Rfam assigns this 73-nucleotide RNA sequence from Caldimonas brevitalea to the family "SAH (S-adenosyl-L-homocysteine) riboswitch aptamer".
It scores 56 bits against the family's covariance model.
Taxonomically the source falls in Caldimonas (Bacteria, Pseudomonadota, Burkholderiales, Sphaerotilaceae).
RNA sequence: CGCUCCAAGGAGCGUUGCAGCGCCCCGACACGCGGGCGUCAGGCUUGGAUGUAUGCAACGACGCUCGCCCGUG
Dot-bracket structure: ...(((((............(((((........)))))......)))))........................